Shown here is a 166-nucleotide sequence from Oribacterium sp. oral taxon 078, a member of the family "Clostridiales-1 RNA". A search with the family's covariance model found it, with a score of 105 bits. Pairs were carried over by alignment from the consensus structure, which is taken from published work.

RNA sequence: UGAUUAUAGCGCCCAAGCUCUCCGCCCUGCGGGCUGCUUGCAGAAAGCAGGGCGGCAGAGCUUGAGGCGCGCCCCGGCAUGAGCAGGAAGCGGGGGAGGGGCCCUGCGGAGUGCGAAUGAAGGGGCGGAUUGCGGGAGCGCAGAGCGCGGAGCAAUCCGGGAAUCA
Numbered sequence: 001u002g003a004u005u006a007u008a009g010c011g012c013c014c015a016a017g018c019u020c021u022c023c024g025c026c027c028u029g030c031g032g033g034c035u036g037c038u039u040g041c042a043g044a045a046a047g048c049a050g051g052g053c054g055g056c057a058g059a060g061c062u063u064g065a066g067g068c069g070c071g072c073c074c075c076g077g078c079a080u081g082a083g084c085a086g087g088a089a090g091c092g093g094g095g096g097a098g099g100g101g102c103c104c105u106g107c108g109g110a111g112u113g114c115g116a117a118u119g120a121a122g123g124g125g126c127g128g129a130u131u132g133c134g135g136g137a138g139c140g141c142a143g144a145g146c147g148c149g150g151a152g153c154a155a156u157c158c159g160g161g162a163a164u165c166a
Base pairs, nucleotide, nucleotide: 001166002165003164004163005162007160010069011068012067013066016062017061018060019059020058021057022055023054024053025052026051027050028049029048030047034043035042036041073124074123075122078119079118080117083114084113085112090107091106092105093104094103095102127158128157129156130155131154132153133152138148139147140146141145